[Rfam]
RNA sequence: CCCUGUAUUCGAAAGUGAUCGUGGGCUGCCUGUGCCCUGGUCAUUGAUAGUGCAGGGAGAGGAACUGGUGAAAGCCUUUCCCCGUGUUUGGAAGGUCUACUGCUGUCCUACCAGACCCUGGUGCUUUCCCACA
Dot-bracket structure: (((((((((....((((((((.((((.......))))))))))))...))))))))).........(..((((((..........((((((.(((...........))).))))))......)))))).)...

The record is a 133-nucleotide RNA from Cavia porcellus, which matches "Small nucleolar RNA SNORA71" in Rfam. From the family's description: The members of this family belong to the H/ACA class of snoRNAs which bind a number of proteins (including dyskerin, Gar1p and Nop10p) to form snoRNP complexes. Rfam's curators put it in the seed alignment. On this family, see Ganot et al., Genes Dev 1997: "The family of box ACA small nucleolar RNAs is defined by an evolutionarily conserved secondary structure and ubiquitous sequence elements essential for RNA accumulation". Pairs were carried over by alignment from the consensus structure, which was predicted with PFOLD.